RNA sequence: GCCUGGAACACAUACUUCUUUAUAUACCCAUAUGAACUUAACAGCUAUGGAAUGUAAAGAAGUAUGUAUUUUUGGU
Numbered sequence: 001g002c003c004u005g006g007a008a009c010a011c012a013u014a015c016u017u018c019u020u021u022a023u024a025u026a027c028c029c030a031u032a033u034g035a036a037c038u039u040a041a042c043a044g045c046u047a048u049g050g051a052a053u054g055u056a057a058a059g060a061a062g063u064a065u066g067u068a069u070u071u072u073u074g075g076u
Stems, first nucleotide, its partner, number of pairs: 007070002010067016028050005
Dot-bracket structure: ......((.((((((((((((((((..(((((.............))))).)))))))))))))))).))......
RNA: mir-1 microRNA precursor family
Organism: Callorhinchus milii